Overview
A member of the RNA family "MIR2275 microRNA precursor family" from Kingdonia uniflora, 88 nucleotides long. Gene Ontology terms of the family: RISC complex and miRNA-mediated post-transcriptional gene silencing. The base pairs follow the family's consensus structure, which was predicted with RNAalifold.

[Rfam]
RNA sequence: GUCUUGAAAGUGAGGAUUGGAUGAAACUAAAUCAUUUUUCAUUCCAUGAAGUAGGGUUCAGUUUCCUCCAAUAUCUUACAUUCAACUC
Numbered sequence: 001g002u003c004u005u006g007a008a009a010g011u012g013a014g015g016a017u018u019g020g021a022u023g024a025a026a027c028u029a030a031a032u033c034a035u036u037u038u039u040c041a042u043u044c045c046a047u048g049a050a051g052u053a054g055g056g057u058u059c060a061g062u063u064u065c066c067u068c069c070a071a072u073a074u075c076u077u078a079c080a081u082u083c084a085a086c087u088c
Stems, first nucleotide, its partner, number of pairs: 004085005011078004016072006023065006030058001032056002